[Rfam]
RNA sequence: UGUGUCAGCUAUCAGGCAAUCUGCAGAACCAUACUGCUAAAGUGACACAACUCCUAAAGAAGCACUGGGCGCUAUCCAUUGCGGCGAAAGCCUGCAAGGAUUAUAGGGUAAACAAAUUUGGCAAUUAGCUGGCAGGAAUAGCGCUCCUGACAGCUUAUU
Numbered sequence: 001u002g003u004g005u006c007a008g009c010u011a012u013c014a015g016g017c018a019a020u021c022u023g024c025a026g027a028a029c030c031a032u033a034c035u036g037c038u039a040a041a042g043u044g045a046c047a048c049a050a051c052u053c054c055u056a057a058a059g060a061a062g063c064a065c066u067g068g069g070c071g072c073u074a075u076c077c078a079u080u081g082c083g084g085c086g087a088a089a090g091c092c093u094g095c096a097a098g099g100a101u102u103a104u105a106g107g108g109u110a111a112a113c114a115a116a117u118u119u120g121g122c123a124a125u126u127a128g129c130u131g132g133c134a135g136g137a138a139u140a141g142c143g144c145u146c147c148u149g150a151c152a153g154c155u156u157a158u159u
Stems, first nucleotide, its partner, number of pairs: 001049007023037004029121003050102001052100004062082003066078003069144007083092003125157001127155005133149005
Dot-bracket structure: (((((((...............((((..{{{..)))).....)))))))(.((((......(((.((([[[[[[[))).)))(((....)))....)))).)................}}}...(.(((((.(((((]]]]]]]))))).))))).)..
RNA: FuFi-1 RNA